The record is a 594-nucleotide part of an RNA from Paragnathia formica, which matches "Eukaryotic small subunit ribosomal RNA" in Rfam. The sequence is in the family's curated seed alignment. The source organism's lineage runs through Eukaryota, Ecdysozoa, Eumalacostraca, Gnathiidae and Paragnathia.
[Rfam]
RNA sequence: GGACUGCGGCUUAAUUUGACUCAACACGGGAAAACUUACCAGGACAGGACAUCGGAAGGACUGACAGAUUUUAAGCUCUUUCUCGAUUCGAUGGGUAGUGGUGCAUGGCCGUUCUUAGUUGGUGGAGUGAUUUGUCUGGUUAAUUCCGAUAACGAACGAGAUUUUGCCCUGCUAAUUAGUCUGCUGAUUAUAUCGGGUCGUCUGUUCCUUCGGGUUCAGCGGCUUGGAACCUCAUGGCUUGGGUAUGCUUCGAUUGGGGGUGUAGGUGGUGCUUUGGGAAGACGGUGUGUUUGCGUCGGUUCUUCUGAGCUGUGCAGCACGCUGUUGGAUUAUUGCCUGUAAGCUUACGCUCUCGGUUGGUAUUCCUUGCCGAUUGUGGUGUCAGUAUUGUGUCUUCUUAGAGGGAACGGCAUCGUAUAGUUGCACGAGAUUGAGCAAUAACAGGUCUGUGAUGCCCUUAGAUGUCUUGGGCUGCACGCGCGCUACAAUGGAGAGAUCAACGCGCUUUCUACCUGCUCCGAGAGGAGUUGGGAACCCGCUGAAAUCUCUCCUCAAUUGGGAUUGCGGUUUGAAAUUGUUCCUCAUGAACGAGGA
Numbered sequence: 001g002g003a004c005u006g007c008g009g010c011u012u013a014a015u016u017u018g019a020c021u022c023a024a025c026a027c028g029g030g031a032a033a034a035c036u037u038a039c040c041a042g043g044a045c046a047g048g049a050c051a052u053c054g055g056a057a058g059g060a061c062u063g064a065c066a067g068a069u070u071u072u073a074a075g076c077u078c079u080u081u082c083u084c085g086a087u088u089c090g091a092u093g094g095g096u097a098g099u100g101g102u103g104c105a106u107g108g109c110c111g112u113u114c115u116u117a118g119u120u121g122g123u124g125g126a127g128u129g130a131u132u133u134g135u136c137u138g139g140u141u142a143a144u145u146c147c148g149a150u151a152a153c154g155a156a157c158g159a160g161a162u163u164u165u166g167c168c169c170u171g172c173u174a175a176u177u178a179g180u181c182u183g184c185u186g187a188u189u190a191u192a193u194c195g196g197g198u199c200g201u202c203u204g205u206u207c208c209u210u211c212g213g214g215u216u217c218a219g220c221g222g223c224u225u226g227g228a229a230c231c232u233c234a235u236g237g238c239u240u241g242g243g244u245a246u247g248c249u250u251c252g253a254u255u256g257g258g259g260g261u262g263u264a265g266g267u268g269g270u271g272c273u274u275u276g277g278g279a280a281g282a283c284g285g286u287g288u289g290u291u292u293g294c295g296u297c298g299g300u301u302c303u304u305c306u307g308a309g310c311u312g313u314g315c316a317g318c319a320c321g322c323u324g325u326u327g328g329a330u331u332a333u334u335g336c337c338u339g340u341a342a343g344c345u346u347a348c349g350c351u352c353u354c355g356g357u358u359g360g361u362a363u364u365c366c367u368u369g370c371c372g373a374u375u376g377u378g379g380u381g382u383c384a385g386u387a388u389u390g391u392g393u394c395u396u397c398u399u400a401g402a403g404g405g406a407a408c409g410g411c412a413u414c415g416u417a418u419a420g421u422u423g424c425a426c427g428a429g430a431u432u433g434a435g436c437a438a439u440a441a442c443a444g445g446u447c448u449g450u451g452a453u454g455c456c457c458u459u460a461g462a463u464g465u466c467u468u469g470g471g472c473u474g475c476a477c478g479c480g481c482g483c484u485a486c487a488a489u490g491g492a493g494a495g496a497u498c499a500a501c502g503c504g505c506u507u508u509c510u511a512c513c514u515g516c517u518c519c520g521a522g523a524g525g526a527g528u529u530g531g532g533a534a535c536c537c538g539c540u541g542a543a544a545u546c547u548c549u550c551c552u553c554a555a556u557u558g559g560g561a562u563u564g565c566g567g568u569u570u571g572a573a574a575u576u577g578u579u580c581c582u583c584a585u586g587a588a589c590g591a592g593g594a
Stems, first nucleotide, its partner, number of pairs: 001486001003484001005480004009475002015030004039470007050093005063082002066079003097458002100456004106452001107450001108446003111442003118157003122153002124133003137148003163434002166431001168404003172401004178395002181392001410424003414420001490551007504536001512531002516527004558589001563584002566581002
The base pairs follow the family's consensus structure, which is taken from published work.